RNA sequence: AAUCAAGAGUUCCGGCAUCAAGCCCUGGCUUGCCGGACGGCAACCCUCCGGCUGUAGUGGGGUGCCCCAGGUGAGGAUUCGACGGCGCGCGGGCCCCCGGCGCCGUAAGUAUGGCGC
Numbered sequence: 001a002a003u004c005a006a007g008a009g010u011u012c013c014g015g016c017a018u019c020a021a022g023c024c025c026u027g028g029c030u031u032g033c034c035g036g037a038c039g040g041c042a043a044c045c046c047u048c049c050g051g052c053u054g055u056a057g058u059g060g061g062g063u064g065c066c067c068c069a070g071g072u073g074a075g076g077a078u079u080c081g082a083c084g085g086c087g088c089g090c091g092g093g094c095c096c097c098c099g100g101c102g103c104c105g106u107a108a109g110u111a112u113g114g115c116g117c
Base pairs, nucleotide, nucleotide: 001079002078003077004076009038011037012036013035014034015033016032021030022029039066040065041064044062045061046060048057082106083105084104085103086102087101088100090099091098092097
Annotation:
SAM (S-adenosyl methionine) riboswitch aptamer: a 117-nucleotide sequence from Sinomonas atrocyanea. From the family's description: SAM-IV is a mRNA element that regulates gene expression via direct sensing of S-adenosylmethionine (SAM or AdoMet). A search with the family's covariance model found it, with a score of 93 bits.